Annotation
A member of the RNA family "MIR6152 microRNA precursor family" from Nicotiana tabacum, 93 nucleotides long.
[Rfam]
RNA sequence: CAGAUCUAACAUAUUCGACUGUAUUUACGGCGUGACACAGGAGAUUAUACUAUUUUUAAACGGAAAGUGAAUCAGUUAAUAUAAUAGACUCCU
Numbered sequence: 001c002a003g004a005u006c007u008a009a010c011a012u013a014u015u016c017g018a019c020u021g022u023a024u025u026u027a028c029g030g031c032g033u034g035a036c037a038c039a040g041g042a043g044a045u046u047a048u049a050c051u052a053u054u055u056u057u058a059a060a061c062g063g064a065a066a067g068u069g070a071a072u073c074a075g076u077u078a079a080u081a082u083a084a085u086a087g088a089c090u091c092c093u
Base pairs, nucleotide, nucleotide: 006087007086008085011082012081014079015078017077018076020074021073023072024071025070026069027068028067031062032061033060034056035055037053039051040050
Lineage of the source: Eukaryota > Embryophyta > eudicotyledons > Gunneridae > Nicotiana.